A member of the RNA family "RAGATH-30 RNA", 60 nucleotides long. Rfam's curators put it in the seed alignment. The family's consensus secondary structure is taken from published work.
[Rfam]
RNA sequence: GUAAAAAUAAGCAAAUUAGCGAAUAUGCUCGUUGAAACGAGAGCUGUUAGAUAACAGCUA
Numbered sequence: 001g002u003a004a005a006a007a008u009a010a011g012c013a014a015a016u017u018a019g020c021g022a023a024u025a026u027g028c029u030c031g032u033u034g035a036a037a038c039g040a041g042a043g044c045u046g047u048u049a050g051a052u053a054a055c056a057g058c059u060a
Stems, first nucleotide, its partner, number of pairs: 028041005043058006